[Rfam]
RNA sequence: GCAUUAUCGGGAGCAGCGUCUUCCAUAAUAC
Numbered sequence: 001g002c003a004u005u006a007u008c009g010g011g012a013g014c015a016g017c018g019u020c021u022u023c024c025a026u027a028a029u030a031c
Base pairs, nucleotide, nucleotide: 001031003029004028005027006026007025009024010023011022012021013020014018
Iron response element II: a 31-nucleotide RNA from Oryzias javanicus.
Rfam describes the family as follows. IRE, TFRC, SLC40A1, SDHB, SLC11A2, CDC42BPA, ACO2, ALAS2_H.SAPIENS, CDC14A, EPAS1, ALAS2, qoxD, Hao1, NDUFS1, transferrin, Aconitate.
A search with the family's covariance model found it, with a score of 36 bits.
The base pairs follow the family's consensus structure, which is taken from published work.
Rfam links the family to the GO term response to iron ion.
A reference for the family is Kohler et al. (1995), "Succinate dehydrogenase b mRNA of Drosophila melanogaster has a functional iron-responsive element in its 5'-untranslated region", J Biol Chem.